RNA sequence: CUGAUUGUUCUAGCGCAUGGCCUUGCUUUGGAAUAAAGCAAGGUGACGAGGAAGAGGUUGUCGAUUUAUCAGCGGAUGCCUCUCGGCUUGCCGGUCGUUAGAAUGCUGUUAAAACUGUUGGGUGACUGACAGGACAGAGCGGCAUUUGGGCAGGACA
Numbered sequence: 001c002u003g004a005u006u007g008u009u010c011u012a013g014c015g016c017a018u019g020g021c022c023u024u025g026c027u028u029u030g031g032a033a034u035a036a037a038g039c040a041a042g043g044u045g046a047c048g049a050g051g052a053a054g055a056g057g058u059u060g061u062c063g064a065u066u067u068a069u070c071a072g073c074g075g076a077u078g079c080c081u082c083u084c085g086g087c088u089u090g091c092c093g094g095u096c097g098u099u100a101g102a103a104u105g106c107u108g109u110u111a112a113a114a115c116u117g118u119u120g121g122g123u124g125a126c127u128g129a130c131a132g133g134a135c136a137g138a139g140c141g142g143c144a145u146u147u148g149g150g151c152a153g154g155a156c157a
Stems, first nucleotide, its partner, number of pairs: 020044008053083005061072001063070002084097004101147007115132007
glmS glucosamine-6-phosphate activated ribozyme aptamer: a 157-nucleotide RNA sequence from Anaerovibrio lipolyticus.
Rfam classes the family as a riboswitch.
Rfam links the family to the GO terms catalytic activity and regulation of gene expression.
The base pairs follow the family's consensus structure, which is taken from published work.
The organism belongs to Anaerovibrio, within Bacteria.